Record summary: Rfam assigns this 145-nucleotide sequence from Populus trichocarpa to the family "MIR480 microRNA precursor family". The family has 69 seed sequences and 3,070 matches in Rfam 15.1. Lineage of the source: Eukaryota > Euphyllophyta > fabids > Malpighiales > Populus.
[Rfam]
RNA sequence: UAAUCUAUUUGGGGCAGAUCCUCAUUAGUUAUGGAAAACCCAUACCUGACUACUCAGAAUCACCCAUUAUCGCAAUCUCGACUACAUCAUUGACAUUGAAAAAUAAAGGACAACUACUGUGUUAACAAUAACUUUUUAAUAUUUU
Numbered sequence: 001u002a003a004u005c006u007a008u009u010u011g012g013g014g015c016a017g018a019u020c021c022u023c024a025u026u027a028g029u030u031a032u033g034g035a036a037a038a039c040c041c042a043u044a045c046c047u048g049a050c051u052a053c054u055c056a057g058a059a060u061c062a063c064c065c066a067u068u069a070u071c072g073c074a075a076u077c078u079c080g081a082c083u084a085c086a087u088c089a090u091u092g093a094c095a096u097u098g099a100a101a102a103a104u105a106a107a108g109g110a111c112a113a114c115u116a117c118u119g120u121g122u123u124a125a126c127a128a129u130a131a132c133u134u135u136u137u138a139a140u141a142u143u144u145u
Stems, first nucleotide, its partner, number of pairs: 006141004012135001014133001018129002023121003026116005